[Rfam]
RNA sequence: GAUAGCCCCCUGUCGCUACUGUGAUUGGACACUGACACAGAGUCAACUAGCCUUGUUCGCGCGGUUCUUCGUGCGCGGAACCGGGGACGGUCCGAGCCACGAGGGGGGAGGCUCGGACCGUCCGUC
Numbered sequence: 001g002a003u004a005g006c007c008c009c010c011u012g013u014c015g016c017u018a019c020u021g022u023g024a025u026u027g028g029a030c031a032c033u034g035a036c037a038c039a040g041a042g043u044c045a046a047c048u049a050g051c052c053u054u055g056u057u058c059g060c061g062c063g064g065u066u067c068u069u070c071g072u073g074c075g076c077g078g079a080a081c082c083g084g085g086g087a088c089g090g091u092c093c094g095a096g097c098c099a100c101g102a103g104g105g106g107g108g109a110g111g112c113u114c115g116g117a118c119c120g121u122c123c124g125u126c
Stems, first nucleotide, its partner, number of pairs: 001014005015051004021032003033045004058075007076083002086122013100107001
Rfam assigns this 126-nucleotide sequence from Streptomyces scabiei to the family "Streptomyces RNA 3920". About the family: Identified by deep sequencing of transcriptome at the end of exponential growth phase. Sequencing size consistent with northern blot size. Streptomyces specific. On this family, see Vockenhuber et al., RNA Biol 2011: "Deep sequencing-based identification of small non-coding RNAs in Streptomyces coelicolor". Taxonomically the source falls in Streptomyces scabiei (Bacteria, Actinomycetota, Streptomycetaceae, Streptomyces). Pairs were carried over by alignment from the consensus structure. The sequence is in the family's curated seed alignment.